[Rfam]
RNA sequence: AGCAAAUUGAAGAGAUUUGUUUAAUCGUUGAAUUUGAUGUGGAAUUUCCAUAUCGUUGUAAUGGUCUUCAAAGUUCUUUGAUUGCU
Numbered sequence: 001a002g003c004a005a006a007u008u009g010a011a012g013a014g015a016u017u018u019g020u021u022u023a024a025u026c027g028u029u030g031a032a033u034u035u036g037a038u039g040u041g042g043a044a045u046u047u048c049c050a051u052a053u054c055g056u057u058g059u060a061a062u063g064g065u066c067u068u069c070a071a072a073g074u075u076c077u078u079u080g081a082u083u084g085c086u
Stems, first nucleotide, its partner, number of pairs: 001086005
The record is an 86-nucleotide RNA sequence from Durio zibethinus, which matches "Small nucleolar RNA R160" in Rfam.
Its family is annotated with RNA processing and nucleolus in the Gene Ontology.
The pairing is the family consensus, mapped onto this sequence.
Lineage of the source: Eukaryota > Streptophytina > Embryophyta > eudicotyledons > Durio.
Rfam's curators write: snoR160 is a C/D box small nucleolar RNA, which acts as a methylation guide for 25S ribosomal RNA in plants. snoR160 has been alternatively named snoZ270 in rice.